[Rfam]
RNA sequence: UUUCCCAUUUGACUGCCACGUUUUCUCCCAAUAGAUUCCAGUGGCUAUGCUUGUGGGAUAGAUCAGCAUUGCCAUGAUCUGAAGGGGAAGGAUUUGUGUGUGUCCUCUUUCUAUAUGAAAUGGCUAAACAGAGAAGA
Numbered sequence: 001u002u003u004c005c006c007a008u009u010u011g012a013c014u015g016c017c018a019c020g021u022u023u024u025c026u027c028c029c030a031a032u033a034g035a036u037u038c039c040a041g042u043g044g045c046u047a048u049g050c051u052u053g054u055g056g057g058a059u060a061g062a063u064c065a066g067c068a069u070u071g072c073c074a075u076g077a078u079c080u081g082a083a084g085g086g087g088a089a090g091g092a093u094u095u096g097u098g099u100g101u102g103u104c105c106u107c108u109u110u111c112u113a114u115a116u117g118a119a120a121u122g123g124c125u126a127a128a129c130a131g132a133g134a135a136g137a
Base pairs, nucleotide, nucleotide: 004057005056006055007054016044017043018042019041071124072123073122074121089112090111091110092109
Small nucleolar RNA SNORA29: a 137-nucleotide RNA from Pipistrellus kuhlii. The family is grouped with related families in Rfam's "SNORA20 clan". Gene Ontology terms of the family: nucleolus and RNA processing. A search with the family's covariance model found it, with a score of 142 bits. NCBI's taxonomy places the organism under Eukaryota, Vertebrata, Mammalia, Vespertilionidae, Pipistrellus. A reference for the family is Huttenhofer et al. (2001), "RNomics: an experimental approach that identifies 201 candidates for novel, small, non-messenger RNAs in mouse", EMBO J.